[Rfam]
Notes: A member of the RNA family "RNase MRP" from Didymella heteroderae, 417 nucleotides long. It is annotated as a ribozyme. Rfam 15.1 lists 3,510 matches to the family in 2,315 species. Gene Ontology terms of the family: rRNA processing, ribonuclease MRP activity and ribonuclease MRP complex.
RNA sequence: UCCUCGCUCAAAGAAUCGCAACGAAGCACACACACAGAGUGGCCACGCCAUCUCAUCCGCGCUUUGGGAGAAAGUCCCCGGACAACGCUCGUAGAGCGCACUUUCAGCAACGAUCCGCCAUAGAAGCGCGGCCUCCUGCAUGACCAGCACCCUCGCUCUCUCGACGCUUGCACUCUUGGCCCGCGCUUUCCUGACGCUACGGGUGGAGGAGCUGGCACCUGGGCGAUGAUAUGAGUCCGCUGGCCACCUUGCCCGCCACCGACGGUUCGUGUCGGGCCAAGAGGAGGAGAGAGAUGUCGAGGCGCUGGGUAGGAGGGUCUUCUCGUCCAGUUUAUGGUUAUGCGAUUGCCCUUGCGCUCCUCGGUAACACGGGGAUGUCGCAGGGGUAACUCAAUGGGGCUUAUUCUUGACGCGAGG
Numbered sequence: 001u002c003c004u005c006g007c008u009c010a011a012a013g014a015a016u017c018g019c020a021a022c023g024a025a026g027c028a029c030a031c032a033c034a035c036a037g038a039g040u041g042g043c044c045a046c047g048c049c050a051u052c053u054c055a056u057c058c059g060c061g062c063u064u065u066g067g068g069a070g071a072a073a074g075u076c077c078c079c080g081g082a083c084a085a086c087g088c089u090c091g092u093a094g095a096g097c098g099c100a101c102u103u104u105c106a107g108c109a110a111c112g113a114u115c116c117g118c119c120a121u122a123g124a125a126g127c128g129c130g131g132c133c134u135c136c137u138g139c140a141u142g143a144c145c146a147g148c149a150c151c152c153u154c155g156c157u158c159u160c161u162c163g164a165c166g167c168u169u170g171c172a173c174u175c176u177u178g179g180c181c182c183g184c185g186c187u188u189u190c191c192u193g194a195c196g197c198u199a200c201g202g203g204u205g206g207a208g209g210a211g212c213u214g215g216c217a218c219c220u221g222g223g224c225g226a227u228g229a230u231a232u233g234a235g236u237c238c239g240c241u242g243g244c245c246a247c248c249u250u251g252c253c254c255g256c257c258a259c260c261g262a263c264g265g266u267u268c269g270u271g272u273c274g275g276g277c278c279a280a281g282a283g284g285a286g287g288a289g290a291g292a293g294a295u296g297u298c299g300a301g302g303c304g305c306u307g308g309g310u311a312g313g314a315g316g317g318u319c320u321u322c323u324c325g326u327c328c329a330g331u332u333u334a335u336g337g338u339u340a341u342g343c344g345a346u347u348g349c350c351c352u353u354g355c356g357c358u359c360c361u362c363g364g365u366a367a368c369a370c371g372g373g374g375a376u377g378u379c380g381c382a383g384g385g386g387u388a389a390c391u392c393a394a395u396g397g398g399g400c401u402u403a404u405u406c407u408u409g410a411c412g413c414g415a416g417g
Base pairs, nucleotide, nucleotide: 002417003416004415005414006413007412008410009409010408011407014347015346016345017344018343019342022066023065024064025063026062027061037054038053039052042049072402073401074400076399077398078397079396090098091097256316257315259313260312262310263309274305276303277302291298292297349386350385351384352383353382354381355380356379